[Rfam]
RNA sequence: UAUCGACAAUACUAAACCAUCCGCGAGGGUGGGACGGAAAGCCUACAGGGUCUCUCUGAGACAGCCGGGAUGCCGAA
Numbered sequence: 001u002a003u004c005g006a007c008a009a010u011a012c013u014a015a016a017c018c019a020u021c022c023g024c025g026a027g028g029g030u031g032g033g034a035c036g037g038a039a040a041g042c043c044u045a046c047a048g049g050g051u052c053u054c055u056c057u058g059a060g061a062c063a064g065c066c067g068g069g070a071u072g073c074c075g076a077a
Stems, first nucleotide, its partner, number of pairs: 012037002017032006040071001042069002048066002050062005
A member of the RNA family "c-di-GMP-I riboswitch aptamer" from Geobacter metallireducens, 77 nucleotides long.
A search with the family's covariance model found it, with a score of 44 bits.